[Rfam]
RNA sequence: GGGGAGCAUCCAGAAUCUGAGAUGUUACCUGAUAUAAUCUUCCUACAUUUAAAUUCAUUGUAUUUGCUUGUAUCACUUUAGUGAACUUUGCAAGUAAAAAAUGAAAUAUAUAA
Numbered sequence: 001g002g003g004g005a006g007c008a009u010c011c012a013g014a015a016u017c018u019g020a021g022a023u024g025u026u027a028c029c030u031g032a033u034a035u036a037a038u039c040u041u042c043c044u045a046c047a048u049u050u051a052a053a054u055u056c057a058u059u060g061u062a063u064u065u066g067c068u069u070g071u072a073u074c075a076c077u078u079u080a081g082u083g084a085a086c087u088u089u090g091c092a093a094g095u096a097a098a099a100a101a102u103g104a105a106a107u108a109u110a111u112a113a
Stems, first nucleotide, its partner, number of pairs: 001030003005026006066095007077084001
RNA: Small nucleolar RNA snoR104